[Rfam]
Nucleotides: 079
Stems, first nucleotide, its partner, number of pairs: 012079003016075004021033003045065001047063001049061003053058001
Number, partner (000 for none) and nucleotide at each position: 001000u002000a003000c004000u005000a006000c007000c008000a009000a010000a011000a012079c013078c014077u015000a016075u017074u018073u019072c020000c021033a022032c023031c024000u025000c026000c027000a028000c029000g030000u031023g032022g033021u034000g035000a036000u037000c038000g039000c040000u041000g042000g043000g044000a045065g046000u047063u048000c049061u050060u051059u052000c053058u054000u055000a056000a057000c058053g059051a060050g061049a062000a063047g064000c065045u066000g067000c068000a069000g070000a071000c072019g073018g074017a075016g076000a077014a078013g079012g
This 79-nucleotide RNA from Hermetia illucens belongs to the Rfam family "drz-agam-1 ribozyme". The base pairs follow the family's consensus structure, which is taken from published work. Gene Ontology term of the family: catalytic activity. Taxonomically the source falls in Hermetia (Eukaryota, Panarthropoda, Insecta, Pterygota).